[Rfam]
RNA: U1 spliceosomal RNA
Organism: Salvator merianae
RNA sequence: UUGCUUAAAUGGCAGGGGAUACACCAUGAUCAGGAAGGUGGUUUUCCCAGGGUGAGACUCAUCCAUUGCAUUCUGGCUGUGCUGGCCCCUGUGAUUUCCCUAAAUGAGGGAAACUUAACUGCAUAAUUUGUGUCCAC
Numbered sequence: 001u002u003g004c005u006u007a008a009a010u011g012g013c014a015g016g017g018g019a020u021a022c023a024c025c026a027u028g029a030u031c032a033g034g035a036a037g038g039u040g041g042u043u044u045u046c047c048c049a050g051g052g053u054g055a056g057a058c059u060c061a062u063c064c065a066u067u068g069c070a071u072u073c074u075g076g077c078u079g080u081g082c083u084g085g086c087c088c089c090u091g092u093g094a095u096u097u098c099c100c101u102a103a104a105u106g107a108g109g110g111a112a113a114c115u116u117a118a119c120u121g122c123a124u125a126a127u128u129u130g131u132g133u134c135c136a137c
Base pairs, nucleotide, nucleotide: 012122013121014120015119016048017047018046019045021043023042024041025040026039027038049090050089051088052087054086056083058081060079061078063076064075092117093116094115095113096112097111099109100108